[Rfam]
RNA sequence: UCGGGCAAAGCGGGCGCCCGAUCAGACGGUCACCCCGUCCAAGACCUGC
Number, nucleotide and partner (000 for none) at each position: 001u021002c020003g019004g018005g017006c016007a000008a000009a000010g049011c048012g047013g046014g045015c000016g006017c005018c004019c003020g002021a001022u000023c000024a000025g039026a038027c037028g036029g035030u000031c000032a000033c000034c000035c029036c028037g027038u026039c025040c000041a000042a000043g000044a000045c014046c013047u012048g011049c010
RNA: chrB-b RNA
Organism: Poindextera montana